Rfam assigns this 69-nucleotide RNA to the family "potC RNA".
RNA sequence: AGAUGGUGCCCACGUCACUCUCCUCUAGGAUCUUUACCCUUUCCUAGAAGUUGUCGUGGGCAUUUAAUU
Numbered sequence: 001a002g003a004u005g006g007u008g009c010c011c012a013c014g015u016c017a018c019u020c021u022c023c024u025c026u027a028g029g030a031u032c033u034u035u036a037c038c039c040u041u042u043c044c045u046a047g048a049a050g051u052u053g054u055c056g057u058g059g060g061c062a063u064u065u066a067a068u069u
Stems, first nucleotide, its partner, number of pairs: 005064010016053002026046005